Record summary:
Rfam assigns this 75-nucleotide RNA sequence from Populus tomentosa to the family "Plastid-ycf2 5UTR RNA". The match comes from Rfam's covariance-model search (83 bits). Plastid ycf2 is a non-coding RNA (ncRNA) recognised in plastids. The base pairs follow the family's consensus structure, which was predicted with LocARNA. On this family, see Richter et al., Plant Commun 2023: "Retrograde signaling in plants: A critical review focusing on the GUN pathway and beyond".
Nucleotides: 075
Stems, first nucleotide, its partner, number of pairs: 004074005010026005040069003044066006051059001
Number, partner (000 for none) and nucleotide at each position: 001000g002000u003000g004074c005073a006072u007071c008070u009000a010026g011025u012024a013023g014022g015000a016000a017000u018000c019000g020000a021000a022014c023013c024012u025011a026010u027000g028000a029000a030000u031000u032000u033000a034000c035000c036000a037000a038000u039000u040069a041068u042067g043000a044066g045065u046064u047063g048062g049061g050000c051059g052000u053000u054000u055000u056000a057000a058000c059051u060000a061049u062048u063047c064046a065045g066044c067042c068041a069040u070008a071007g072006a073005u074004g075000a